[Rfam]
RNA sequence: CCAGGUUCCUGGCUUGUUUCGAGUUGCCUGCGUUUGUUUGUUUUUGGGGACACAGGCAGCUAAAGCAAGCCUGGAAACUGC
Numbered sequence: 001c002c003a004g005g006u007u008c009c010u011g012g013c014u015u016g017u018u019u020c021g022a023g024u025u026g027c028c029u030g031c032g033u034u035u036g037u038u039u040g041u042u043u044u045u046g047g048g049g050a051c052a053c054a055g056g057c058a059g060c061u062a063a064a065g066c067a068a069g070c071c072u073g074g075a076a077a078c079u080g081c
Stems, first nucleotide, its partner, number of pairs: 003079002006076003011071009022061009032051003

mir-1788 microRNA precursor family: an 81-nucleotide RNA sequence from Scyliorhinus torazame. The family has 11 seed sequences and 504 matches in Rfam 15.1.